[Rfam]
RNA sequence: ACACGGGAAAGGAGGUGGUCCGGUAGUGAUGAUUUCUCGGACACGUGAGGUGAUCGCGCGAUAAGCGCGUCCACGCCUUGACGGACGUGUGAUCUCGAAUCCCACGCGAUCACCGCGUCCGGCGGACAUGGUGCGGCCUCGUCCACCGCACCGGCGACGCGCCAUCCGCCGGGCGUCCCAC
Numbered sequence: 001a002c003a004c005g006g007g008a009a010a011g012g013a014g015g016u017g018g019u020c021c022g023g024u025a026g027u028g029a030u031g032a033u034u035u036c037u038c039g040g041a042c043a044c045g046u047g048a049g050g051u052g053a054u055c056g057c058g059c060g061a062u063a064a065g066c067g068c069g070u071c072c073a074c075g076c077c078u079u080g081a082c083g084g085a086c087g088u089g090u091g092a093u094c095u096c097g098a099a100u101c102c103c104a105c106g107c108g109a110u111c112a113c114c115g116c117g118u119c120c121g122g123c124g125g126a127c128a129u130g131g132u133g134c135g136g137c138c139u140c141g142u143c144c145a146c147c148g149c150a151c152c153g154g155c156g157a158c159g160c161g162c163c164a165u166c167c168g169c170c171g172g173g174c175g176u177c178c179c180a181c
Stems, first nucleotide, its partner, number of pairs: 015057005059097003063093001065090004070085003116175011130152006